[Rfam]
Y RNA: a 93-nucleotide RNA from Microcebus murinus. NCBI's taxonomy places the organism under Eukaryota, Bilateria, Chordata, Mammalia, Microcebus. By type it is a non-coding RNA gene. The base pairs follow the family's consensus structure, which is taken from published work. The family has 104 seed sequences and 26,986 matches in Rfam 15.1.
RNA sequence: GGCUGGUCUGAUGGUAGUGGGUUAUCAGAACUCAUUAACAUUAGUGUCACUGAAGUUGGUAUUCAACCCCCCACUGCUAAAUUUGGCUAAAAA
Numbered sequence: 001g002g003c004u005g006g007u008c009u010g011a012u013g014g015u016a017g018u019g020g021g022u023u024a025u026c027a028g029a030a031c032u033c034a035u036u037a038a039c040a041u042u043a044g045u046g047u048c049a050c051u052g053a054a055g056u057u058g059g060u061a062u063u064c065a066a067c068c069c070c071c072c073a074c075u076g077c078u079a080a081a082u083u084u085g086g087c088u089a090a091a092a093a
Stems, first nucleotide, its partner, number of pairs: 004089005010084002015079001016075006034060002037057002